[Rfam]
RNA sequence: UAAAAAAAUAACAGUUUUGCAGAUAUAUACUUGGGAAAAUGGCCCGAGAGUUUCUAGCACCCCCAAAAGUGGUGACUAUCCGCAAUUGCUUUUUGAAC
Dot-bracket structure: .................(((.((((....((((((.......)))))).........((((.(.....).))))..)))).)))..............
Annotation
Shown here is a 98-nucleotide sequence from Weissella diestrammenae, a member of the family "Purine riboswitch aptamer". The base pairs follow the family's consensus structure, which is taken from published work.